[Rfam]
RNA: PhrS
RNA sequence: GUAGUCAUUGCUUAAUGACCCAGAGGAGUCAUCACCAUGUACAUGGACACAGUAGUAGUAGCCGGUAUUCUGACUGUUGGGCUGAUGGUCGCUUUUCUGGGCGGCUUCGGUUAUUUCAUAUGGAACGACAGCCAUAAAAAAUCCGACAAGAAAAAAGGCUGACAGAUUUUCACCAGGCAUGGCUCGCAAGGCCUUUGGCGGUUCCCCGAGAGGGUGAACCGCUUUUUUUUA
Numbered sequence: 001g002u003a004g005u006c007a008u009u010g011c012u013u014a015a016u017g018a019c020c021c022a023g024a025g026g027a028g029u030c031a032u033c034a035c036c037a038u039g040u041a042c043a044u045g046g047a048c049a050c051a052g053u054a055g056u057a058g059u060a061g062c063c064g065g066u067a068u069u070c071u072g073a074c075u076g077u078u079g080g081g082c083u084g085a086u087g088g089u090c091g092c093u094u095u096u097c098u099g100g101g102c103g104g105c106u107u108c109g110g111u112u113a114u115u116u117c118a119u120a121u122g123g124a125a126c127g128a129c130a131g132c133c134a135u136a137a138a139a140a141a142u143c144c145g146a147c148a149a150g151a152a153a154a155a156a157g158g159c160u161g162a163c164a165g166a167u168u169u170u171c172a173c174c175a176g177g178c179a180u181g182g183c184u185c186g187c188a189a190g191g192c193c194u195u196u197g198g199c200g201g202u203u204c205c206c207c208g209a210g211a212g213g214g215u216g217a218a219c220c221g222c223u224u225u226u227u228u229u230u231a
Base pairs, nucleotide, nucleotide: 009103010102011101012100052062053061079090080089082087182192183191185190198222199221200220201219202218203217204216